[Rfam]
A member of the RNA family "Fluoride riboswitch aptamer (crcB RNA motif)" from Paraburkholderia sp. DHOC27, 65 nucleotides long. For this family Rfam cites "Widespread genetic switches and toxicity resistance proteins for fluoride" (Baker et al., Science, 2012). NCBI's taxonomy places the organism under Bacteria, Pseudomonadota, Betaproteobacteria, Burkholderiaceae, Paraburkholderia. Rfam links the family to the GO terms positive regulation of gene expression and response to fluoride. It scores 54 bits against the family's covariance model.
RNA sequence: GUUUUGCCUGGAGAUGGCAUUCUCCUAAACCGCCAAAUGUUGUGGCUGAUGAUGCCUGCUAUGCG
Numbered sequence: 001g002u003u004u005u006g007c008c009u010g011g012a013g014a015u016g017g018c019a020u021u022c023u024c025c026u027a028a029a030c031c032g033c034c035a036a037a038u039g040u041u042g043u044g045g046c047u048g049a050u051g052a053u054g055c056c057u058g059c060u061a062u063g064c065g
Stems, first nucleotide, its partner, number of pairs: 010025004016056006032046004
Dot-bracket structure: .........[[[[..((((((]]]]......((((.......))))....)))))).........